[Rfam]
RNA sequence: AAGCUAGCCAAUGAAUCUGCUUACCUGAAUGUGUUUCAGCAGAAAUUUAGACAAAGCUGGUGAUAGUAAAGCGUUGUUACUAGCCUUAAAGACAUUGAACUCAUUAAGGUCCCUGAAAAUGGCUAUAAGA
Numbered sequence: 001a002a003g004c005u006a007g008c009c010a011a012u013g014a015a016u017c018u019g020c021u022u023a024c025c026u027g028a029a030u031g032u033g034u035u036u037c038a039g040c041a042g043a044a045a046u047u048u049a050g051a052c053a054a055a056g057c058u059g060g061u062g063a064u065a066g067u068a069a070a071g072c073g074u075u076g077u078u079a080c081u082a083g084c085c086u087u088a089a090a091g092a093c094a095u096u097g098a099a100c101u102c103a104u105u106a107a108g109g110u111c112c113c114u115g116a117a118a119a120u121g122g123c124u125a126u127a128a129g130a
Stems, first nucleotide, its partner, number of pairs: 003061005016043005071123002083110007091102002
Shown here is a 130-nucleotide RNA from Phyllostomus discolor, a member of the family "Small nucleolar RNA SNORA33". Rfam describes the family as follows. ACA33 is a member of the H/ACA class of snoRNA that guide the sites of modification of uridines to pseudouridines. The match comes from Rfam's covariance-model search (124 bits). Taxonomically the source falls in Phyllostomus (Eukaryota, Opisthokonta, Sarcopterygii, Phyllostominae). Rfam classes the family as an H/ACA-box small nucleolar RNA.